Rfam assigns this 52-nucleotide RNA sequence from Lentivirus humimdef1 to the family "HIV Ribosomal frameshift signal". Its family is annotated with viral translational frameshifting in the Gene Ontology. About the family: This family represents the HIV Ribosomal frameshift signal. HIV uses a system called -1 ribosomal frameshifting to produce the required ratio of Gag and Gag-Pol polyproteins.
RNA sequence: UUUUUUAGGGAAAAUCUGGCCUCCCCUUGUGGGGAGGCCAGGGAACUUCCUU
Number, nucleotide and partner (000 for none) at each position: 001u000002u000003u000004u000005u000006u000007a000008g052009g051010g050011a000012a048013a047014a000015u042016c041017u040018g039019g038020c037021c036022u035023c034024c033025c032026c000027u000028u000029g000030u000031g000032g025033g024034g023035a022036g021037g020038c019039c018040a017041g016042g015043g000044a000045a000046c000047u013048u012049c000050c010051u009052u008